[Rfam]
RNA sequence: CAAUAGAUCGGUUUCACAAGGGGGUGGCUCACUUCCCGAUAGAUUGGGGGUGAUGCCAUGAGUGUAUACGAAAGCUUAAUGGUGGCAAUAAAUUUUGCAUCAUUAGUUGUCGUUAUCUUGGCUUUUCGCCAAAAAAAUAACCCCCCUUGUGCUUAGCGGCUAAUUAGGGGAUUUAUUUCUACCUAGGAGCCAAACCCUUUUGAUGGGUUCGGUCUUAUUGCAUGCCGUCGGUGUUCGUGCACUGGCG
Numbered sequence: 001c002a003a004u005a006g007a008u009c010g011g012u013u014u015c016a017c018a019a020g021g022g023g024g025u026g027g028c029u030c031a032c033u034u035c036c037c038g039a040u041a042g043a044u045u046g047g048g049g050g051u052g053a054u055g056c057c058a059u060g061a062g063u064g065u066a067u068a069c070g071a072a073a074g075c076u077u078a079a080u081g082g083u084g085g086c087a088a089u090a091a092a093u094u095u096u097g098c099a100u101c102a103u104u105a106g107u108u109g110u111c112g113u114u115a116u117c118u119u120g121g122c123u124u125u126u127c128g129c130c131a132a133a134a135a136a137a138u139a140a141c142c143c144c145c146c147u148u149g150u151g152c153u154u155a156g157c158g159g160c161u162a163a164u165u166a167g168g169g170g171a172u173u174u175a176u177u178u179c180u181a182c183c184u185a186g187g188a189g190c191c192a193a194a195c196c197c198u199u200u201u202g203a204u205g206g207g208u209u210c211g212g213u214c215u216u217a218u219u220g221c222a223u224g225c226c227g228u229c230g231g232u233g234u235u236c237g238u239g240c241a242c243u244g245g246c247g
Base pairs, nucleotide, nucleotide: 001220002219003218004217005216006214007213008212010210013193014192015151016150017149018148019147020146021145022144024141025140029053030052031051033050034049035048036047037046060122064118066116074086075085097113098112164186165185166184194208195207196206197205226247227246228245229244230243231242232241233240234239
A member of the RNA family "BsrG" from Pullulanibacillus pueri, 247 nucleotides long. bsrE, bsrG and bsrH pair through intermolecular interactions with antisense sRNAs. They form type I toxin/antitoxin system that includes an mRNA encoding for a short, toxic peptide (bsrE, bsrG and bsrH) and an antitoxin that is comprised of an antisense RNA. bsrG encodes a 39-amino-acid toxin, and the 180 nucleotide antisense sRNA called SR4 acts as the antitoxin (they overlap by 123 nucleotides). The organism belongs to Pullulanibacillus, within Bacteria. Gene Ontology terms of the family: toxin activity and autolysis. For this family Rfam cites "BsrG/SR4 from Bacillus subtilis--the first temperature-dependent type I toxin-antitoxin system" (Jahn et al., Mol Microbiol, 2012).